Notes
Rfam assigns this 178-nucleotide RNA from Candidatus Atribacteria bacterium MT.SAG.1 to the family "glmS glucosamine-6-phosphate activated ribozyme aptamer". The source organism's lineage runs through Bacteria, Pseudomonadati and Atribacterota.

[Rfam]
RNA sequence: AAUUGAAUACAAGCGCCAGAACUUACUCAAUCUGAAGGGCUCAGUGUUUUGAUAAGGUAAGUUGACGAGGAAGGAGUUUAUCGAAAAUUCGGCGGAUGCUCCUGGGUUUGCUAGAUCUUUAGAAAACCUACAAAACUUGCGAGUAAUUGCGAGUACAAAAGGGUUUUUGUGGUAGAAU
Numbered sequence: 001a002a003u004u005g006a007a008u009a010c011a012a013g014c015g016c017c018a019g020a021a022c023u024u025a026c027u028c029a030a031u032c033u034g035a036a037g038g039g040c041u042c043a044g045u046g047u048u049u050u051g052a053u054a055a056g057g058u059a060a061g062u063u064g065a066c067g068a069g070g071a072a073g074g075a076g077u078u079u080a081u082c083g084a085a086a087a088u089u090c091g092g093c094g095g096a097u098g099c100u101c102c103u104g105g106g107u108u109u110g111c112u113a114g115a116u117c118u119u120u121a122g123a124a125a126a127c128c129u130a131c132a133a134a135a136c137u138u139g140c141g142a143g144u145a146a147u148u149g150c151g152a153g154u155a156c157a158a159a160a161g162g163g164u165u166u167u168u169g170u171g172g173u174a175g176a177a178u
Stems, first nucleotide, its partner, number of pairs: 020063008072103005081092004104118005122168007136153007